[Rfam]
RNA sequence: CCCUUAUCUUUUAAAAGUUUCAAGUUGGUCCCUUAUCUUUAUUUUAGGUUCAAGUUGGUCCUUUCCGUCAAUUUUUUAACUAUUUCCGUUAAAUUUGGACACGUGUCAAACUAAUUUGGACACGUGGCACACUUGGGCAGAUGACACGUGUUCAAAUUUAACUGUAACAGUAAAAAAAUUGACGGAAGAGACCAACUUGAAACCUAAAAUAAAGAUAAGAGACCAACUUGAAACUUUUAAAAGAUAAGGGA
Numbered sequence: 001c002c003c004u005u006a007u008c009u010u011u012u013a014a015a016a017g018u019u020u021c022a023a024g025u026u027g028g029u030c031c032c033u034u035a036u037c038u039u040u041a042u043u044u045u046a047g048g049u050u051c052a053a054g055u056u057g058g059u060c061c062u063u064u065c066c067g068u069c070a071a072u073u074u075u076u077u078a079a080c081u082a083u084u085u086c087c088g089u090u091a092a093a094u095u096u097g098g099a100c101a102c103g104u105g106u107c108a109a110a111c112u113a114a115u116u117u118g119g120a121c122a123c124g125u126g127g128c129a130c131a132c133u134u135g136g137g138c139a140g141a142u143g144a145c146a147c148g149u150g151u152u153c154a155a156a157u158u159u160a161a162c163u164g165u166a167a168c169a170g171u172a173a174a175a176a177a178a179u180u181g182a183c184g185g186a187a188g189a190g191a192c193c194a195a196c197u198u199g200a201a202a203c204c205u206a207a208a209a210u211a212a213a214g215a216u217a218a219g220a221g222a223c224c225a226a227c228u229u230g231a232a233a234c235u236u237u238u239a240a241a242a243g244a245u246a247a248g249g250g251a
Stems, first nucleotide, its partner, number of pairs: 002249007023228003027224003032219012045206003
Notes
MIR2655 microRNA precursor family: a 251-nucleotide sequence from Trifolium subterraneum. Its family is annotated with miRNA-mediated post-transcriptional gene silencing and RISC complex in the Gene Ontology. The family has 25 seed sequences and 892 matches in Rfam 15.1. NCBI's taxonomy places the organism under Eukaryota, Streptophytina, Tracheophyta, Trifolieae, Trifolium. The base pairs follow the family's consensus structure, which was predicted with RNAalifold. A search with the family's covariance model found it, with a score of 135 bits.